[Rfam]
RNA: FMN riboswitch aptamer (RFN element)
Organism: bacterium 0.1xD8-71
RNA sequence: UAAUGUCUUCAGGGCAGGGUGAAAUUCCCGAUCGGCGGUAACAGUCCGCGGGCGCGAAAGCGCGGGCCUGGUGGAAUUCCAGGACCGACGGUAUAGUCCGGAUUAAAGAAGGUGUGU
Numbered sequence: 001u002a003a004u005g006u007c008u009u010c011a012g013g014g015c016a017g018g019g020u021g022a023a024a025u026u027c028c029c030g031a032u033c034g035g036c037g038g039u040a041a042c043a044g045u046c047c048g049c050g051g052g053c054g055c056g057a058a059a060g061c062g063c064g065g066g067c068c069u070g071g072u073g074g075a076a077u078u079c080c081a082g083g084a085c086c087g088a089c090g091g092u093a094u095a096g097u098c099c100g101g102a103u104u105a106a107a108g109a110a111g112g113u114g115u116g117u
Base pairs, nucleotide, nucleotide: 003115004114005113006112007111008110009109010108017029018028019027031097032096033087034086035049036048037047038046044085045084052063053062054061067083068082069081070080071079089100090099091098